[Rfam]
RNA: glmS glucosamine-6-phosphate activated ribozyme aptamer
RNA sequence: CUUAAUGCUCUAGCGCCAGAACUUAGCUUUGAUCGGAAUAAGAGUUAAGUUGACGAGGGACAGGGUUUAUCGAGAAAUUUCGGCGGAUACCCUGCGGUGAUACUCACCACCGAUAGCGAGUCUACAAAACUGUCAAGUGAUUGAUAGGACAAAUGGACUCAGGUGAAAAGA
Numbered sequence: 001c002u003u004a005a006u007g008c009u010c011u012a013g014c015g016c017c018a019g020a021a022c023u024u025a026g027c028u029u030u031g032a033u034c035g036g037a038a039u040a041a042g043a044g045u046u047a048a049g050u051u052g053a054c055g056a057g058g059g060a061c062a063g064g065g066u067u068u069a070u071c072g073a074g075a076a077a078u079u080u081c082g083g084c085g086g087a088u089a090c091c092c093u094g095c096g097g098u099g100a101u102a103c104u105c106a107c108c109a110c111c112g113a114u115a116g117c118g119a120g121u122c123u124a125c126a127a128a129a130c131u132g133u134c135a136a137g138u139g140a141u142u143g144a145u146a147g148g149a150c151a152a153a154u155g156g157a158c159u160c161a162g163g164u165g166a167a168a169a170g171a
Stems, first nucleotide, its partner, number of pairs: 020051008029042001061094005070083004095112005118160006130147007